[Rfam]
RNA sequence: GGGUGCACGGUCCUGCCAGGAUCGGCAGGUCUUCGCGCUGGUCGGGCCGCCAGCG
Numbered sequence: 001g002g003g004u005g006c007a008c009g010g011u012c013c014u015g016c017c018a019g020g021a022u023c024g025g026c027a028g029g030u031c032u033u034c035g036c037g038c039u040g041g042u043c044g045g046g047c048c049g050c051c052a053g054c055g
Base pairs, nucleotide, nucleotide: 005026006025008024009023010022011021012020036055037054038053039052040051041050042049